[Rfam]
RNA sequence: GGUUUAAAGGGUACCUAGACGGUAAAUUAAACUCUAAACGAGUACUUUUUUACUAGAGUUUUAUGUGAGAAGGAAGAAUUUCUGGAGUAGGGAUGAAAUACUUUGAUACCAGAAGGACUGGUAACGGCGAAGGCAUCCUUCUAUGUAAAAACUGACGUUGAGGGACGAAGGCUUGGGUAGCAAUAAGGAUUAGAUACCCUAGUAGUCCAAGCAGAAAAUGAUGAAUGUCAUAGGCUAGAUUAUAUAUUUAGUCUAUAAAUGAAAGUGUAAGCAUUCCACCUCAAGAGUAAUACGGCAACGUAUAAACUGAAAUCAUU
Numbered sequence: 001g002g003u004u005u006a007a008a009g010g011g012u013a014c015c016u017a018g019a020c021g022g023u024a025a026a027u028u029a030a031a032c033u034c035u036a037a038a039c040g041a042g043u044a045c046u047u048u049u050u051u052a053c054u055a056g057a058g059u060u061u062u063a064u065g066u067g068a069g070a071a072g073g074a075a076g077a078a079u080u081u082c083u084g085g086a087g088u089a090g091g092g093a094u095g096a097a098a099u100a101c102u103u104u105g106a107u108a109c110c111a112g113a114a115g116g117a118c119u120g121g122u123a124a125c126g127g128c129g130a131a132g133g134c135a136u137c138c139u140u141c142u143a144u145g146u147a148a149a150a151a152c153u154g155a156c157g158u159u160g161a162g163g164g165a166c167g168a169a170g171g172c173u174u175g176g177g178u179a180g181c182a183a184u185a186a187g188g189a190u191u192a193g194a195u196a197c198c199c200u201a202g203u204a205g206u207c208c209a210a211g212c213a214g215a216a217a218a219u220g221a222u223g224a225a226u227g228u229c230a231u232a233g234g235c236u237a238g239a240u241u242a243u244a245u246a247u248u249u250a251g252u253c254u255a256u257a258a259a260u261g262a263a264a265g266u267g268u269a270a271g272c273a274u275u276c277c278a279c280c281u282c283a284a285g286a287g288u289a290a291u292a293c294g295g296c297a298a299c300g301u302a303u304a305a306a307c308u309g310a311a312a313u314c315a316u317u
Stems, first nucleotide, its partner, number of pairs: 001280003009277001011166002014163001016160001018159003022053005030046001032042003057153003060149006068142007075119002079115007090101001092099001127134002171212006180206002186200003223276006231255010259266002282309002291302004
A member of the RNA family "Bacterial small subunit ribosomal RNA", 317 nucleotides of a longer RNA. Gene Ontology terms of the family: structural constituent of ribosome and ribosome. The base pairs follow the family's consensus structure, which is taken from published work.